[Rfam]
RNA sequence: GAAAGGUCGUGCUAUCUAACGGCUGGUUCUGACUGGUUCAGGGCCCAAUUUGA
Numbered sequence: 001g002a003a004a005g006g007u008c009g010u011g012c013u014a015u016c017u018a019a020c021g022g023c024u025g026g027u028u029c030u031g032a033c034u035g036g037u038u039c040a041g042g043g044c045c046c047a048a049u050u051u052g053a
Stems, first nucleotide, its partner, number of pairs: 005024006025045007
Annotation:
S4-Clostridia ribosomal protein leader: a 53-nucleotide RNA. The base pairs follow the family's consensus structure, which is taken from published work. On this family, see Eckert and Weinberg, BMC Microbiol 2020: "Discovery of 20 novel ribosomal leader candidates in bacteria and archaea". The family is grouped with related families in Rfam's "Ribosomal Protein S4 Leader clan".